[Rfam]
RNA sequence: AAAGCCGGGCAGGUAGCUGCGGGUCGUGGCCGAAAGGCGAACGAUUCGAGGAAAGUCCGGACUCCACAGGGCAGGGUGAUGGCUAACGGCCACCCGGGGUGACCCGCGGGAAAGUGCCACAGAAAACAAACCGCCCCUCAUGCAUUCGCGCGAGGGGUAAGGGUGAAAAGGCGAGGUAAGAGCUCACCGCGUUGCUGGUGACAGCAGCGGCAGGGUAAACCCCACCCGGAGCAAGGCCAAGCAGCAGGCUGGGCGGCUCGUCCAAGGCCUGCGGGUAGGCUGCUAGAGGUGCCGGGUAACCGGCAUCCCAGAGGAAUAGCUACCAGCGCGCGGCGGCAACAAAGCGCGUUACAGAAUCCGGCUUACGCCCGGCUUUUCCG
Number, nucleotide and partner (000 for none) at each position: 001a376002a375003a374004g373005c372006c371007g370008g369009g368010c367011a000012g324013g323014u322015a321016g320017c319018u318019g000020c048021g047022g046023g045024u044025c043026g042027u041028g000029g000030c000031c000032g000033a000034a000035a000036g000037g000038c000039g000040a000041a027042c026043g025044a024045u023046u022047c021048g020049a000050g000051g000052a000053a364054a363055g362056u000057c361058c360059g359060g358061a357062c231063u230064c229065c228066a000067c000068a000069g259070g258071g257072c256073a000074g227075g226076g225077u224078g223079a000080u092081g091082g090083c089084u000085a000086a000087c000088g000089g083090c082091c081092a080093c000094c108095c106096g105097g104098g103099g000100u000101g000102a000103c098104c097105c096106g095107c000108g094109g222110g221111a000112a000113a000114g220115u219116g216117c215118c214119a000120c000121a000122g000123a000124a000125a000126a000127c000128a000129a000130a000131c162132c161133g158134c157135c156136c155137c154138u153139c152140a000141u150142g149143c148144a000145u000146u000147c000148g143149c142150g141151c000152g139153a138154g137155g136156g135157g134158u133159a000160a000161g132162g131163g000164u000165g000166a000167a000168a000169a000170g188171g187172c000173g185174a184175g183176g000177u000178a000179a000180g000181a000182g000183c175184u174185c173186a000187c171188c170189g211190c209191g208192u207193u206194g205195c204196u203197g202198g000199u000200g000201a000202c197203a196204g195205c194206a193207g192208c191209g190210g000211c189212a000213g000214g118215g117216u116217a000218a000219a115220c114221c110222c109223c078224a077225c076226c075227c074228g065229g064230a063231g062232c000233a000234a000235g281236g280237c279238c278239a000240a000241g000242c000243a000244g272245c271246a270247g269248g268249c267250u264251g263252g262253g261254c260255g000256g072257c071258u070259c069260g254261u253262c252263c251264a250265a000266g000267g249268c248269c247270u246271g245272c244273g000274g000275g000276u000277a000278g238279g237280c236281u235282g000283c000284u000285a000286g000287a000288g307289g306290u305291g304292c303293c302294g301295g300296g000297u000298a000299a000300c295301c294302g293303g292304c291305a290306u289307c288308c000309c000310a000311g000312a000313g000314g000315a000316a000317u000318a018319g017320c016321u015322a014323c013324c012325a000326g000327c000328g000329c000330g000331c000332g000333g000334c000335g000336g000337c000338a000339a000340c000341a000342a000343a000344g000345c000346g000347c000348g000349u000350u000351a000352c000353a000354g000355a000356a000357u061358c060359c059360g058361g057362c055363u054364u053365a000366c000367g010368c009369c008370c007371g006372g005373c004374u003375u002376u001377u000378c000379c000380g000